[Rfam]
RNA sequence: GGUCAUGAGCGACAGUCAUGAGGCCCCGGCCGACUGUCCGGCAACCCUCCGUCCGUGGCGGGGUGCCCCGGGUGAAGACCAGGUCGUAGGCAGCGAGGUCUACGGCAAGCGCGGACC
Dot-bracket structure: ((((....(.((((((.....((......)).)))))))(((..(((.((......))..))).))).........))))..(((((((((......)))))))))...........

SAM (S-adenosyl methionine) riboswitch aptamer: a 117-nucleotide sequence from Streptomyces avermitilis.
Gene Ontology terms of the family: regulation of gene expression and S-adenosylmethionine metabolic process.
The family's consensus secondary structure is taken from published work.
Rfam's curators put it in the seed alignment.
Taxonomically the source falls in Streptomyces avermitilis (Bacteria, Bacillati, Actinomycetes, Kitasatosporales).
On this family, see Weinberg et al., RNA 2008: "The aptamer core of SAM-IV riboswitches mimics the ligand-binding site of SAM-I riboswitches".